Rfam assigns this 278-nucleotide sequence from Nannospalax galili to the family "Mason-Pfizer monkey virus packaging signal".
The family's consensus secondary structure was predicted with PFOLD.
The match comes from Rfam's covariance-model search (143 bits).
Rfam's curators write: This family represents a group of sequences that are related to the Mason-Pfizer monkey virus (MPMV) packaging signal. The packaging signal is located in the 5' UTR and is required for specific RNA encapsidation.
By type it is a cis-regulatory element.
RNA sequence: UGGCGCCCAACGUGGGGCUGGAUACUGGGGGGCAACGUGAGGGUCCGACGAUGAAGAUGGGAAGAAGGGGUGCACACCCACUUGAAUAGUUCAGAGGCGUCGUGGUAGCCAGCUGUGACUGAGCCGACAGGUAAGUUGGUCAUUCAAUCAUGGGGCAAGAAUUGAGUCAGCAUCAGAAAUAUGUAAUACAGUUAAAAGAAGCUUAAAGGCAAGAGGAGUAAAGGUUACAACUGAGGAUUUAUUUCAUUUCUUUGAUUUUGUGAAAGACAUCUGCCCAU
Number, nucleotide and partner (000 for none) at each position: 001u000002g000003g000004c000005g000006c030007c029008c028009a000010a000011c000012g025013u024014g023015g000016g000017g000018c000019u000020g000021g000022a000023u014024a013025c012026u000027g000028g008029g007030g006031g000032g000033c000034a000035a000036c050037g049038u048039g000040a000041g000042g000043g000044u000045c000046c000047g000048a038049c037050g036051a000052u000053g000054a000055a000056g000057a000058u000059g000060g000061g000062a000063a000064g000065a000066a000067g000068g000069g000070g000071u000072g000073c000074a000075c000076a000077c000078c000079c000080a000081c000082u000083u000084g000085a000086a000087u000088a000089g000090u000091u000092c000093a000094g000095a000096g000097g000098c121099g000100u000101c117102g116103u115104g114105g113106u000107a000108g000109c000110c000111a000112g000113c105114u104115g103116u102117g101118a000119c000120u000121g098122a000123g000124c000125c000126g000127a000128c000129a000130g000131g000132u000133a000134a000135g000136u000137u158138g000139g156140u000141c155142a000143u154144u153145c152146a151147a000148u000149c000150a000151u146152g145153g144154g143155g141156c139157a000158a137159g000160a000161a000162u000163u205164g204165a203166g202167u201168c000169a000170g000171c000172a000173u000174c000175a000176g000177a000178a000179a000180u000181a000182u000183g000184u000185a000186a000187u000188a000189c000190a000191g000192u000193u000194a000195a000196a000197a000198g000199a000200a000201g167202c166203u165204u164205a163206a000207a000208g000209g000210c000211a000212a000213g253214a252215g251216g250217a249218g248219u000220a000221a000222a240223g239224g238225u237226u236227a000228c000229a000230a000231c000232u000233g000234a000235g000236g226237a225238u224239u223240u222241a000242u000243u000244u000245c000246a000247u000248u218249u217250c216251u215252u214253u213254g000255a000256u000257u000258u000259u000260g000261u000262g000263a278264a000265a000266g275267a000268c273269a000270u000271c000272u000273g268274c000275c266276c000277a000278u263